[Rfam]
RNA: Small nucleolar RNA SNORA55
Organism: Steatornis caripensis
RNA sequence: GUACCUGAAUCUUUCCUGUUCCUUGCUGUGCAGUGCAGGUCUGGGGACAGUUGGUGCUGCAGCACACCCGUGGAAAUCUAGAUGGGUUGUUUUCUGCUGGUUUGGAACUCAUCUCUACACCUCUGCAACAUUU
Dot-bracket structure: (((((.......((((((..((...............))..)))))).....)))))..........(.(.(.......((((((((......(((......))).))))))))......).).)........